[Rfam]
RNA sequence: GCCGAGCUUUGUAACGGGAGCUUGUGACCCGAGUGGGGGCACUAGGAUGGUGGAACAUGGGUUUGGCUCCUUGAGUCGGAUCCCACGUGGCUUUGCCAUGGCUUGCCCGUUCCAAGCCAGGAGUUGAGUCAUGGGACGUCGGUGAAAACUGUGGUGUCGUGGCUCUUAGAGCGAAGGGCACUGCGUGAGGCUGGUUUCACAGAGCAGCGAAGACCUUCCUCUCUUGGCAGUGGGAGGAUAACAAGCUUGAUCCACUAAGAUCCAACGCGUCUCUCUGAGCCGACCUUAACUGGACCACCAUUCUU
Number, nucleotide and partner (000 for none) at each position: 001g040002c039003c038004g023005a022006g021007c020008u019009u018010u017011g000012u000013a000014a000015c000016g000017g010018g009019a008020g007021c006022u005023u004024g000025u000026g000027a000028c037029c036030c035031g000032a000033g000034u000035g030036g029037g028038g003039g002040c001041a000042c000043u000044a304045g303046g302047a301048u300049g299050g298051u297052g296053g295054a000055a000056c292057a291058u289059g000060g287061g285062u000063u283064u282065g281066g280067c000068u278069c277070c000071u000072u000073g273074a272075g271076u000077c269078g263079g262080a261081u260082c259083c000084c000085a256086c000087g255088u254089g253090g252091c000092u000093u250094u000095g000096c000097c000098a000099u000100g247101g246102c245103u244104u243105g242106c000107c237108c236109g000110u235111u234112c233113c232114a231115a000116g228117c227118c226119a225120g224121g223122a222123g221124u000125u000126g165127a164128g163129u162130c161131a160132u159133g158134g157135g000136a155137c154138g000139u000140c151141g150142g149143u148144g000145a000146a000147a000148a143149c142150u141151g140152u000153g000154g137155u136156g000157u134158c133159g132160u131161g130162g129163c128164u127165c126166u171167u000168a000169g000170a000171g166172c000173g218174a217175a216176g215177g214178g000179c000180a000181c000182u211183g000184c209185g208186u207187g000188a000189g000190g000191c202192u201193g200194g000195u000196u000197u000198c000199a000200c193201a192202g191203a000204g000205c000206a000207g186208c185209g184210a000211a182212g000213a000214c177215c176216u175217u174218c173219c000220u000221c123222u122223c121224u120225u119226g118227g117228c116229a000230g000231u114232g113233g112234g111235a110236g108237g107238a000239u000240a000241a000242c105243a104244a103245g102246c101247u100248u000249g000250a093251u000252c090253c089254a088255c087256u085257a000258a000259g082260a081261u080262c079263c078264a000265a000266c000267g000268c000269g077270u000271c075272u074273c073274u000275c000276u000277g069278a068279g000280c066281c065282g064283a063284c000285c061286u000287u060288a000289a058290c000291u057292g056293g000294a000295c053296c052297a051298c050299c049300a048301u047302u046303c045304u044305u000
The family of this 305-nucleotide RNA sequence from Hibiscus syriacus is "Plant signal recognition particle RNA". NCBI's taxonomy places the organism under Eukaryota, Euphyllophyta, Spermatophyta, Malvoideae, Hibiscus. The match comes from Rfam's covariance-model search (230 bits). The family has 63 seed sequences and 4,988 matches in Rfam 15.1. By type it is a non-coding RNA gene.